[Rfam]
RNA sequence: GGCGGUGUCGCCAAGUGGUAAGGCACGGCUCUGCAAAAGCUGCACCCCCAGUUCAAAUCUGGGCACCGCCU
Numbered sequence: 001g002g003c004g005g006u007g008u009c010g011c012c013a014a015g016u017g018g019u020a021a022g023g024c025a026c027g028g029c030u031c032u033g034c035a036a037a038a039g040c041u042g043c044a045c046c047c048c049c050a051g052u053u054c055a056a057a058u059c060u061g062g063g064c065a066c067c068g069c070c071u
Stems, first nucleotide, its partner, number of pairs: 001070007010024003026042005047063005
RNA: tRNA
Organism: Pseudanabaenococcus habilitatus